[Rfam]
RNA sequence: AACAUGCUGCCUUAGAUCCACCUUUGUGGAUGUCAGUCUUGAACUGAGUUCUGCUCGCAAACUUCCUGUUUCUUGUAGUUCCAGUCAGAGACAUCCGGCAACUUUUUUGGUUGUACAGUCAAAGGUGCUUGAGUCAUUGGCAUGUGAGAGAAAUACACCUGCAUGUUAGUCUCCAGUUCUGGUGGGAUGGCAGCAGCCGGCUGCCAUUCGCUCCGCCAGGACUCGACUGGUGUGCGGACACG
Numbered sequence: 001a002a003c004a005u006g007c008u009g010c011c012u013u014a015g016a017u018c019c020a021c022c023u024u025u026g027u028g029g030a031u032g033u034c035a036g037u038c039u040u041g042a043a044c045u046g047a048g049u050u051c052u053g054c055u056c057g058c059a060a061a062c063u064u065c066c067u068g069u070u071u072c073u074u075g076u077a078g079u080u081c082c083a084g085u086c087a088g089a090g091a092c093a094u095c096c097g098g099c100a101a102c103u104u105u106u107u108u109g110g111u112u113g114u115a116c117a118g119u120c121a122a123a124g125g126u127g128c129u130u131g132a133g134u135c136a137u138u139g140g141c142a143u144g145u146g147a148g149a150g151a152a153a154u155a156c157a158c159c160u161g162c163a164u165g166u167u168a169g170u171c172u173c174c175a176g177u178u179c180u181g182g183u184g185g186g187a188u189g190g191c192a193g194c195a196g197c198c199g200g201c202u203g204c205c206a207u208u209c210g211c212u213c214c215g216c217c218a219g220g221a222c223u224c225g226a227c228u229g230g231u232g233u234g235c236g237g238a239c240a241c242g
Base pairs, nucleotide, nucleotide: 002145003144004143005142006141007140008139011133012132013131014130015129019127020126021125022124023123024122025121026120027097028096029095030094031093032092037091038090039089040088043085044084045083046082048081051078052077053076054075057072059071060070061069062068098114099113100112101111102110103109159237160236161235162234163233166230168228169227170226171225178220179219180218181217182216183215184214185213189212190211191210193204194203195202
The family of this 242-nucleotide RNA from Erinaceus europaeus is "Small nucleolar RNA SNORA53". The snoRNA ACA53 belongs to the H/ACA family of pseudouridylation guide snoRNAs. Taxonomically the source falls in Erinaceus (Eukaryota, Teleostomi, Tetrapoda, Theria). Gene Ontology terms of the family: nucleolus and RNA processing. By type it is an H/ACA-box small nucleolar RNA. The family's consensus secondary structure was predicted with RNAalifold. Rfam's curators put it in the seed alignment.